[Rfam]
RNA sequence: UGAAUCUCACCCGGCAGAGCUUGACCAGCAGCCGGAAGCGAGUCUUGCGUGGUGUUCGGGCAACCGACGCUGCGAAGCGUAGACAGCGAGUCCAGAAGCCAUGCUAUUGAGCCUCGAAAGAGGAUUUCACGUUGGAGCUUUCGUUUUCUUUUUAGCGGGAGCCGUGCAACAACCGCGUUUUGGUGAGCGGCCUGUUGUCCGACCGGGGUCGAAGAACA
Numbered sequence: 001u002g003a004a005u006c007u008c009a010c011c012c013g014g015c016a017g018a019g020c021u022u023g024a025c026c027a028g029c030a031g032c033c034g035g036a037a038g039c040g041a042g043u044c045u046u047g048c049g050u051g052g053u054g055u056u057c058g059g060g061c062a063a064c065c066g067a068c069g070c071u072g073c074g075a076a077g078c079g080u081a082g083a084c085a086g087c088g089a090g091u092c093c094a095g096a097a098g099c100c101a102u103g104c105u106a107u108u109g110a111g112c113c114u115c116g117a118a119a120g121a122g123g124a125u126u127u128c129a130c131g132u133u134g135g136a137g138c139u140u141u142c143g144u145u146u147u148c149u150u151u152u153u154a155g156c157g158g159g160a161g162c163c164g165u166g167c168a169a170c171a172a173c174c175g176c177g178u179u180u181u182g183g184u185g186a187g188c189g190g191c192c193u194g195u196u197g198u199c200c201g202a203c204c205g206g207g208g209u210c211g212a213a214g215a216a217c218a
Stems, first nucleotide, its partner, number of pairs: 011035004019029003022186001024184002038087002042084004046079002048074008057066003108212001109210001111209006131203006137162003142157004167197005173190004

Background:
This 218-nucleotide sequence from Bremerella alba belongs to the Rfam family "Group II catalytic intron D1-D4-6". Lineage of the source: Bacteria > Pseudomonadati > Planctomycetia > Pirellulaceae > Bremerella. A search with the family's covariance model found it, with a score of 133 bits. The base pairs follow the family's consensus structure. Rfam links the family to the GO term Group II intron splicing. Rfam describes the family as follows. Group II introns are found in rRNA, tRNA and mRNA of organelles in fungi, plants and protists, and also in mRNA in bacteria.